[Rfam]
RNA sequence: CUCUUAUCAAGAGAGGUGGAGGGACUGGCCCUGUGAUACCUCAGCAACCGUCUUUAUUAGACAAGGUGCUAAUUCCAGCAAGCGCAACAACGCUUGAAAGAUGAGGA
Dot-bracket structure: .(((((((....(((((...(((.[[[[)))......)))))((((.((((((.....))))..))))))...(]]]]((((((......))))))..)))))))).

A member of the RNA family "SAM riboswitch aptamer (S box leader)" from Gracilibacillus dipsosauri, 107 nucleotides long.
Gene Ontology term of the family: regulation of gene expression.
The match comes from Rfam's covariance-model search (102 bits).
Lineage of the source: Bacteria > Bacillati > Bacillota > Bacilli > Gracilibacillus.